[Rfam]
RNA: c-di-GMP-I-GGC riboswitch aptamer
Organism: Desulfoplanes formicivorans
RNA sequence: CGCGAACAAUGCCAAACCUGUCGCGAGGCAGGGACGGAAAGCCAUGGGUCUCACGGAGAUCGCCAGGUUGCCGGAU
Numbered sequence: 001c002g003c004g005a006a007c008a009a010u011g012c013c014a015a016a017c018c019u020g021u022c023g024c025g026a027g028g029c030a031g032g033g034a035c036g037g038a039a040a041g042c043c044a045u046g047g048g049u050c051u052c053a054c055g056g057a058g059a060u061c062g063c064c065a066g067g068u069u070g071c072c073g074g075a076u
Base pairs, nucleotide, nucleotide: 003073004072012037013036017032018031019030020029021028022027035062040069041068042067043066045065046064047063048060049059050058